RNA sequence: GGAUAGCACUAUUUUGCUAUCUCCGACCAAUAACAUUGUGACACGUGUGACAGCAAUUCCACGUGGCAUAGCAUUAUUGGUCGGGAAUAGCAAAAUAGUGAUAUCC
Numbered sequence: 001g002g003a004u005a006g007c008a009c010u011a012u013u014u015u016g017c018u019a020u021c022u023c024c025g026a027c028c029a030a031u032a033a034c035a036u037u038g039u040g041a042c043a044c045g046u047g048u049g050a051c052a053g054c055a056a057u058u059c060c061a062c063g064u065g066g067c068a069u070a071g072c073a074u075u076a077u078u079g080g081u082c083g084g085g086a087a088u089a090g091c092a093a094a095a096u097a098g099u100g101a102u103a104u105c106c
Stems, first nucleotide, its partner, number of pairs: 002105004012095009022085012036071005042065006049058002
Background:
MIR6274 microRNA precursor family: a 106-nucleotide RNA sequence from Prunus armeniaca. It scores 81 bits against the family's covariance model. The family's consensus secondary structure was predicted with RNAalifold. Rfam links the family to the GO terms RISC complex and miRNA-mediated post-transcriptional gene silencing. The organism belongs to Prunus, within Eukaryota.